[Rfam]
RNA sequence: AGAUGGAAGAAACACCCAGCUCGCGGGCGACCGCGGGCGACCCCGGACCGGAGCAUCCCCAGCCCCGACCGGGUCGUGCCACCGCGCACACCGCUGGAGCCUCACGCUCCGGAACUCCUCACCGAUCGGU
Number, nucleotide and partner (000 for none) at each position: 001a000002g000003a000004u121005g120006g119007a000008a000009g117010a116011a000012a000013c000014a000015c000016c000017c000018a000019g038020c037021u036022c035023g034024c033025g032026g031027g000028c000029g000030a000031c026032c025033g024034c023035g022036g021037g020038c019039g000040a000041c000042c073043c072044c071045g070046g069047a000048c000049c067050g066051g065052a000053g063054c062055a000056u000057c000058c000059c000060c000061a000062g054063c053064c000065c051066c050067g049068a000069c046070c045071g044072g043073g042074u000075c000076g089077u088078g087079c086080c000081a000082c000083c000084g000085c000086g079087c078088a077089c076090a000091c000092c000093g000094c112095u111096g110097g109098a108099g107100c106101c000102u000103c000104a000105c000106g100107c099108u098109c097110c096111g095112g094113a000114a000115c000116u010117c009118c000119u006120c005121a004122c129123c128124g000125a000126u000127c000128g123129g122130u000